[Rfam]
RNA: Group II catalytic intron D1-D4-4
RNA sequence: UAGCAGAGGAGGGUUCUGCACGGACAGUAGUCGGUUUGAUCUGUUAGCUGACCGGCGGCUUCGUUGGGUAACCGGCGGGGUCGAAGCCCGGUGACAAAGGCCGUCUUGGACGGACGAGCGAUCCGGCGGGCCGUAACGCGA
Numbered sequence: 001u002a003g004c005a006g007a008g009g010a011g012g013g014u015u016c017u018g019c020a021c022g023g024a025c026a027g028u029a030g031u032c033g034g035u036u037u038g039a040u041c042u043g044u045u046a047g048c049u050g051a052c053c054g055g056c057g058g059c060u061u062c063g064u065u066g067g068g069u070a071a072c073c074g075g076c077g078g079g080g081u082c083g084a085a086g087c088c089c090g091g092u093g094a095c096a097a098a099g100g101c102c103g104u105c106u107u108g109g110a111c112g113g114a115c116g117a118g119c120g121a122u123c124c125g126g127c128g129g130g131c132c133g134u135a136a137c138g139c140g141a
Base pairs, nucleotide, nucleotide: 020044021043022042023041024040051092052091053090054089055088056083057082058081059080060079061078065074067072099115101113102112103111104110118134119133120132